A member of the RNA family "Small Cajal body specific RNA 3" from Phyllostomus discolor, 137 nucleotides long.
The organism belongs to Phyllostomus, within Eukaryota.
scaRNAs are a specific class of small nuclear RNAs which localise to the Cajal bodies and guide the modification of RNA polymerase II transcribed spliceosomal RNAs U1, U2, U4, U5 and U12.
A reference for the family is Darzacq et al. (2002), "Cajal body-specific small nuclear RNAs: a novel class of 2'-O-methylation and pseudouridylation guide RNAs", EMBO J.
Rfam links the family to the GO terms nucleolus, Cajal body and RNA processing.
RNA sequence: CAUGGAGCCUGCGCCAACUUCGAUGCGGACAAACGAAAACGCCCCUCGCCCGCCCGGCGCAGCGGUCCCACAGGGACGCGGAGGACUCUGGCUCAGCGCAGCCGGCUGCUGAGUCCCAUCGUUCCCCUCCGCACAGC
Number, nucleotide and partner (000 for none) at each position: 001c000002a000003u000004g068005g067006a066007g000008c000009c062010u061011g060012c059013g000014c000015c000016a000017a000018c000019u000020u000021c000022g000023a000024u000025g053026c052027g051028g050029a000030c048031a000032a000033a000034c000035g047036a046037a000038a000039a000040c000041g000042c000043c000044c000045c000046u036047c035048g030049c000050c028051c027052g026053c025054c000055c000056g000057g000058c000059g012060c011061a010062g009063c000064g000065g000066u006067c005068c004069c000070a000071c000072a000073g000074g000075g000076a000077c000078g000079c000080g130081g129082a128083g127084g126085a000086c000087u000088c121089u000090g115091g114092c113093u112094c111095a110096g109097c108098g107099c000100a000101g000102c000103c000104g000105g000106c000107u098108g097109c096110u095111g094112a093113g092114u091115c090116c000117c000118a000119u000120c000121g088122u000123u000124c000125c000126c084127c083128u082129c081130c080131g000132c000133a000134c000135a000136g000137c000